[Rfam]
Nucleotides: 057
Stems, first nucleotide, its partner, number of pairs: 009049002012047004026043006
Number, partner (000 for none) and nucleotide at each position: 001000g002000c003000g004000g005000c006000u007000c008000u009049c010048c011000c012047u013046u014045u015044a016000c017000u018000c019000g020000g021000a022000u023000c024000g025000u026043c027042c028041g029040g030039c031038a032000c033000g034000u035000u036000c037000c038031u039030g040029c041028c042027g043026g044015u045014g046013a047012a048010g049009g050000a051000g052000u053000a054000c055000a056000a057000c
Shown here is a 57-nucleotide RNA sequence from Streptomyces tardus, a member of the family "msiK RNA". It is annotated as a cis-regulatory element. The base pairs follow the family's consensus structure, which is taken from published work.